[Rfam]
RNA sequence: AGCGAUAAAGGCAAACUUGAGGAAACUCAAGGACGCAAAGCUAUAGGGCCUAAAGAAGGCAGCCAGCUACCGAAA
Numbered sequence: 001a002g003c004g005a006u007a008a009a010g011g012c013a014a015a016c017u018u019g020a021g022g023a024a025a026c027u028c029a030a031g032g033a034c035g036c037a038a039a040g041c042u043a044u045a046g047g048g049c050c051u052a053a054a055g056a057a058g059g060c061a062g063c064c065a066g067c068u069a070c071c072g073a074a075a
Stems, first nucleotide, its partner, number of pairs: 003072002011036002016031006034062001039068004046064002048060003

Rfam assigns this 75-nucleotide sequence from Tissierella sp. P1 to the family "c-di-GMP-I-GGC riboswitch aptamer". Pairs were carried over by alignment from the consensus structure, which is taken from published work. The family is grouped with related families in Rfam's "c-di-GMP_I riboswitch clan". Lineage of the source: Bacteria > Bacillati > Tissierellia > Tissierellales > Tissierella. For this family Rfam cites "Structural basis of ligand binding by a c-di-GMP riboswitch" (Smith et al., Nat Struct Mol Biol, 2009).